[Rfam]
The record is a 107-nucleotide RNA from Canis lupus, which matches "mir-8834 microRNA precursor family" in Rfam. Pairs were carried over by alignment from the consensus structure, which was predicted with RNAalifold. NCBI's taxonomy places the organism under Eukaryota, Opisthokonta, Craniata, Sarcopterygii, Canis lupus.

RNA sequence: AGGAGGAACUACCACAGUGGCAGCGGCAGGAUCUGGAGCCCUGGAUUCAGCUCCCCCAGUAACUACGGAGCUCUCUGUCUGUAGGGGCCUGGAUCCUCCGCGGGCAG
Numbered sequence: 001a002g003g004a005g006g007a008a009c010u011a012c013c014a015c016a017g018u019g020g021c022a023g024c025g026g027c028a029g030g031a032u033c034u035g036g037a038g039c040c041c042u043g044g045a046u047u048c049a050g051c052u053c054c055c056c057c058a059g060u061a062a063c064u065a066c067g068g069a070g071c072u073c074u075c076u077g078u079c080u081g082u083a084g085g086g087g088c089c090u091g092g093a094u095c096c097u098c099c100g101c102g103g104g105c106a107g
Stems, first nucleotide, its partner, number of pairs: 002099006009091001012087002019079005025074002029072002032069004037064001041059003